Rfam assigns this 51-nucleotide sequence from Bacillus cereus to the family "Bacillus sRNA 1".
[Rfam]
RNA sequence: UGCGUUUCACUCCUUCUACAUGUAUUGUAAACCUUCACACUAAUGUGAGGG
Numbered sequence: 001u002g003c004g005u006u007u008c009a010c011u012c013c014u015u016c017u018a019c020a021u022g023u024a025u026u027g028u029a030a031a032c033c034u035u036c037a038c039a040c041u042a043a044u045g046u047g048a049g050g051g
Base pairs, nucleotide, nucleotide: 014051015050016049017048019047020046021045022044023043

The organism belongs to Bacillus cereus, within Bacteria.
On this family, see Peng et al., Nucleic Acids Res 2018: "Small RNA-mediated Cry toxin silencing allows Bacillus thuringiensis to evade Caenorhabditis elegans avoidance behavioral defenses".
The base pairs follow the family's consensus structure.